The family of this 164-nucleotide RNA sequence from Macaca nemestrina is "U1 spliceosomal RNA". Clan: U1 clan. The match comes from Rfam's covariance-model search (130 bits). From the family's description: U1 is a small nuclear RNA (snRNA) component of the spliceosome (involved in pre-mRNA splicing). Its 5' end forms complementary base pairs with the 5' splice junction, thus defining the 5' donor site of an intron. There are significant differences in sequence and secondary structure between metazoan and yeast U1 snRNAs, the latter being much longer (568 nucleotides as compared to 164 nucleotides in human). Nevertheless, secondary structure predictions suggest that all U1 snRNAs share a 'common core' consisting of helices I, II, the proximal region of III, and IV. This family does not contain the larger yeast sequences.

RNA sequence: AUACUUAGCUGGCAGAGGAGAUACCAUGAUCACGAAGGUGGUUUUCCCAGGGCAAGGCUUAUCCAUUGCACUCAGGAUGUGCUGACUCCUGCAAUUUCUCCAAAUGUGGGAAACUAAACUGCAUAAUUUGUGAUAGUGAGAGACUGUGUUCUCACUUUCCCCUA
Numbered sequence: 001a002u003a004c005u006u007a008g009c010u011g012g013c014a015g016a017g018g019a020g021a022u023a024c025c026a027u028g029a030u031c032a033c034g035a036a037g038g039u040g041g042u043u044u045u046c047c048c049a050g051g052g053c054a055a056g057g058c059u060u061a062u063c064c065a066u067u068g069c070a071c072u073c074a075g076g077a078u079g080u081g082c083u084g085a086c087u088c089c090u091g092c093a094a095u096u097u098c099u100c101c102a103a104a105u106g107u108g109g110g111a112a113a114c115u116a117a118a119c120u121g122c123a124u125a126a127u128u129u130g131u132g133a134u135a136g137u138g139a140g141a142g143a144c145u146g147u148g149u150u151c152u153c154a155c156u157u158u159c160c161c162c163u164a
Stems, first nucleotide, its partner, number of pairs: 012122004017047005023042005049090004056083003060079005094115001095113003099109002138163001140161001142159002146155003